[Rfam]
RNA sequence: GCGUCCCGCCUCGUGAUCGUCUUCUCACCCCUCACGGCGGCGGGCGGAGAAAAGGUCAGGGCCCCCGCGAAGUCAUGCCCGCGGGGGCCCUGC
Numbered sequence: 001g002c003g004u005c006c007c008g009c010c011u012c013g014u015g016a017u018c019g020u021c022u023u024c025u026c027a028c029c030c031c032u033c034a035c036g037g038c039g040g041c042g043g044g045c046g047g048a049g050a051a052a053a054g055g056u057c058a059g060g061g062c063c064c065c066c067g068c069g070a071a072g073u074c075a076u077g078c079c080c081g082c083g084g085g086g087g088c089c090c091u092g093c
Stems, first nucleotide, its partner, number of pairs: 002046002005044006013035004019029001057092013
The family of this 93-nucleotide sequence from Streptomyces sp. SID4985 is "sodF sRNA".
The match comes from Rfam's covariance-model search (64 bits).
The base pairs follow the family's consensus structure.
A reference for the family is Kim et al. (2014), "Inverse regulation of Fe- and Ni-containing SOD genes by a Fur family regulator Nur through small RNA processed from 3'UTR of the sodF mRNA", Nucleic Acids Res.